[Rfam]
RNA sequence: UCCUUCUCUCAACAAACAGAUUUGUGCCUUCGGUCCUGUCCAUUGGCCCUCGUGGUCGGUGUGGUUCAGUUGUACUGUUGGCAGUUCGACGAUUAAUGGAAGCGUUUUGUUAUCAACACCCUGGCGUAAAUCCGCGUCGACAGAUCUGAGAUUAAUGACUUCUCCUUCAAUUUCCUCAUCUUGAGUUCGUCCUUUCGGACUGAGCUCGGUGGGAGGAGGGAGAUUGUUGGGCGCCAUAUUCCAUCGCGUUGCAUAGAACGUCGUUCUUUGACGUUUGGGCAAAACCAUGGCUGCAUACAUUU
Dot-bracket structure: .................(((((((((((...(((((((..((.((((.(....)))))...))...)))..).)))...))).......(((((..((..((..................))..)).......).)))))))))))).............((((((..........((((..((((((((((....)))).))))))))))......)))))).......(((((((........(((..((...((((...))))......)).)..))......))))).))........

Rfam assigns this 302-nucleotide RNA from Choiromyces venosus to the family "A. fumigatus sRNA Afu_309".